RNA sequence: GCCGGCCCGCCUAAGCAGCGGGCUGUCACCGUGCUUGCGGGGCAUGUGGGUGGAGGGAUUGGUGGCGUGCGUAGACGAACGGGGGUUUAGGCCCACGCCCAAGGCCGCUGCCCCAUUCCAGAAGGAGACUCGACAUUGUGGCCCUCGCGGAGGUGAGGGCUUCAAGGUCGAUGAUGAGCGUCGCACCGCCUCAGGCUGGUUGACAGAGCAGGGAAAAGACGCCGGUCCCCUUGGUGGAGGGAUCACAGCCCUGAGUGGGUCCUCUCGGGAAGCUGCGUAUCGACUCCAACACCUCCACUUUU
Numbered sequence: 001g002c003c004g005g006c007c008c009g010c011c012u013a014a015g016c017a018g019c020g021g022g023c024u025g026u027c028a029c030c031g032u033g034c035u036u037g038c039g040g041g042g043c044a045u046g047u048g049g050g051u052g053g054a055g056g057g058a059u060u061g062g063u064g065g066c067g068u069g070c071g072u073a074g075a076c077g078a079a080c081g082g083g084g085g086u087u088u089a090g091g092c093c094c095a096c097g098c099c100c101a102a103g104g105c106c107g108c109u110g111c112c113c114c115a116u117u118c119c120a121g122a123a124g125g126a127g128a129c130u131c132g133a134c135a136u137u138g139u140g141g142c143c144c145u146c147g148c149g150g151a152g153g154u155g156a157g158g159g160c161u162u163c164a165a166g167g168u169c170g171a172u173g174a175u176g177a178g179c180g181u182c183g184c185a186c187c188g189c190c191u192c193a194g195g196c197u198g199g200u201u202g203a204c205a206g207a208g209c210a211g212g213g214a215a216a217a218g219a220c221g222c223c224g225g226u227c228c229c230c231u232u233g234g235u236g237g238a239g240g241g242a243u244c245a246c247a248g249c250c251c252u253g254a255g256u257g258g259g260u261c262c263u264c265u266c267g268g269g270a271a272g273c274u275g276c277g278u279a280u281c282g283a284c285u286c287c288a289a290c291a292c293c294u295c296c297a298c299u300u301u302u
Stems, first nucleotide, its partner, number of pairs: 001043003004024007029040004046302001048300009059289002061286002065284001069280001074276001077273001080272001081266003085263001092258002102252003107249004113241002116239005122232004127227004131170004136165003140161009178222005189213003196206003